[Rfam]
Overview:
This 34-nucleotide sequence belongs to the Rfam family "Prion pseudoknot". Gene Ontology term of the family: translation. The family's consensus secondary structure is taken from published work. The family's RNA type in Rfam is cis-regulatory element. This family represents a predicted pseudoknot structure found in prion protein mRNA. It has been suggested that the family has a possible effect in prion protein translation. The literature on the family includes a 2001 paper in Nucleic Acids Res by Barrette et al., "Pseudoknots in prion protein mRNAs confirmed by comparative sequence analysis and pattern searching".

RNA sequence: CCAUGGCGGUGGCUGGGGCCAUGGAGGUGGCUCG
Numbered sequence: 001c002c003a004u005g006g007c008g009g010u011g012g013c014u015g016g017g018g019c020c021a022u023g024g025a026g027g028u029g030g031c032u033c034g
Stems, first nucleotide, its partner, number of pairs: 001024006